[Rfam]
RNA: Ruegeria cis2 sRNA
Organism: Rhodobacteraceae bacterium 63075
Nucleotides: 153
Stems, first nucleotide, its partner, number of pairs: 003034002006032001008030001013025003037057001040054001041052003065152004070082004086147002089144006098134002100131001102129001103127003107123002110119003
Number, partner (000 for none) and nucleotide at each position: 001000g002000g003034u004033g005000g006032u007000g008030u009000a010000g011000c012000g013025c014024g015023g016000g017000u018000u019000g020000u021000a022000g023015u024014u025013g026000a027000u028000g029000a030008a031000g032006g033004c034003g035000a036000a037057g038000c039000c040054g041052c042051g043050g044000g045000a046000c047000u048000g049000g050043u051042c052041g053000a054040u055000c056000a057037c058000g059000u060000g061000a062000a063000a064000g065152a066151g067150c068149g069000g070082g071081u072080u073079c074000c075000a076000g077000u078000c079073g080072a081071a082070c083000a084000u085000g086147g087146c088000g089144a090143g091142c092141a093140u094139g095000u096000a097000g098134c099133c100131c101000g102129g103127c104126a105125g106000c107123g108122u109000g110119u111118u112117g113000g114000c115000a116000a117112c118111g119110a120000a121000c122108a123107u124000c125105u126104u127103g128000c129102c130000g131100g132000a133099g134098g135000c136000a137000a138000u139094c140093a141092u142091g143090u144089u145000g146087g147086c148000g149068c150067g151066c152065u153000g